RNA: TPP riboswitch aptamer (THI element)
Organism: Ferrimonas aestuarii
RNA sequence: CUUAAUUAGUCGGGGAGCUUAGUGCUGAGACCGCAGAUGCGGGACCCGUUGAACCUGAAACAGUUAAUUCUGACGUAGGGAACUAAUGAUCCACUUCA
Dot-bracket structure: .....(((((((((..((.....))......(((....)))...)))).....((((...(((......)))...))))..)))))............